[Rfam]
RNA: Small nucleolar RNA U49
Nucleotides: 065
Stems, first nucleotide, its partner, number of pairs: 014059001030049006
Number, partner (000 for none) and nucleotide at each position: 001000c002000a003000c004000c005000a006000a007000u008000g009000a010000g011000g012000a013000a014059g015000a016000c017000a018000u019000c020000c021000c022000a023000g024000g025000a026000a027000u028000a029000g030049g031048a032047a033046g034045u035044g036000c037000c038000g039000u040000a041000u042000g043000a044035c045034a046033c047032u048031u049030u050000a051000a052000a053000c054000a055000g056000c057000a058000g059014c060000g061000g062000u063000g064000g065000c